[Rfam]
Nucleotides: 167
Stems, first nucleotide, its partner, number of pairs: 002063005014055003018052001020050004025045004030041002106161008124143002126140003
Number, partner (000 for none) and nucleotide at each position: 001000u002063u003062g004061c005060a006059c007000a008000u009000g010000u011000u012000g013000a014055a015054u016053a017000g018052u019000u020050a021049a022048g023047g024000u025045c026044u027043c028042u029000c030041u031040g032000g033000a034000u035000u036000u037000u038000a039000u040031u041030g042028a043027g044026a045025g046000c047023c048022c049021u050020u051000c052018a053016u054015a055014u056000a057000u058000g059006g060005u061004g062003c063002a064000c065000a066000g067000a068000a069000a070000a071000a072000a073000u074000g075000c076000u077000g078000u079000u080000u081000g082000u083000u084000c085000a086000g087000c088000a089000g090000c091000g092000g093000c094000c095000a096000g097000a098000c099000a100000a101000c102000c103000g104000u105000a106161g107160g108159g109158a110157u111156g112155g113154a114000u115000c116000a117000a118000c119000a120000g121000g122000u123000g124143a125142a126140u127139g128138g129000u130000u131000c132000a133000a134000a135000a136000u137000a138128c139127u140126a141000u142125u143124u144000g145000u146000c147000u148000a149000c150000u151000g152000a153000u154113u155112c156111c157110a158109u159108c160107c161106c162000a163000c164000a165000u166000c167000c
Record summary
The record is a 167-nucleotide RNA sequence from Colocasia esculenta, which matches "small nucleolar RNA snoR143" in Rfam. The source organism's lineage runs through Eukaryota, Viridiplantae, Liliopsida, Araceae and Colocasia. It scores 95 bits against the family's covariance model. Rfam classes the family as an H/ACA-box small nucleolar RNA.